[Rfam]
RNA: BsrG
RNA sequence: GCAAUAGCCGGAACUCAAGGGUGGUCGGCUAUCCCCCGGGAAAGGGGGUGAUGCCUUUUGACAGUUUUUGAAGCACUGAUGGCCAUGUUCUCGUUUGGGAGCCUGAUCAUUGCUGUUCUGUCAUUUAAUCAAAAAAAAUAGACCUCCCUUGACCACAAAUUGAGGGAGAGGUCCAGUUAUCUGAUGGCCGAUCCUCGUGGGGAACGGUUAUUGCAGGAACCGCAGGUGGGCAAACACCUGUGG
Numbered sequence: 001g002c003a004a005u006a007g008c009c010g011g012a013a014c015u016c017a018a019g020g021g022u023g024g025u026c027g028g029c030u031a032u033c034c035c036c037c038g039g040g041a042a043a044g045g046g047g048g049u050g051a052u053g054c055c056u057u058u059u060g061a062c063a064g065u066u067u068u069u070g071a072a073g074c075a076c077u078g079a080u081g082g083c084c085a086u087g088u089u090c091u092c093g094u095u096u097g098g099g100a101g102c103c104u105g106a107u108c109a110u111u112g113c114u115g116u117u118c119u120g121u122c123a124u125u126u127a128a129u130c131a132a133a134a135a136a137a138a139u140a141g142a143c144c145u146c147c148c149u150u151g152a153c154c155a156c157a158a159a160u161u162g163a164g165g166g167a168g169a170g171g172u173c174c175a176g177u178u179a180u181c182u183g184a185u186g187g188c189c190g191a192u193c194c195u196c197g198u199g200g201g202g203a204a205c206g207g208u209u210a211u212u213g214c215a216g217g218a219a220c221c222g223c224a225g226g227u228g229g230g231c232a233a234a235c236a237c238c239u240g241u242g243g
Stems, first nucleotide, its partner, number of pairs: 001214005007208003015152007023143001025141001030050002033048005060122005073088003097114002100111001161179002190205001192203002220243009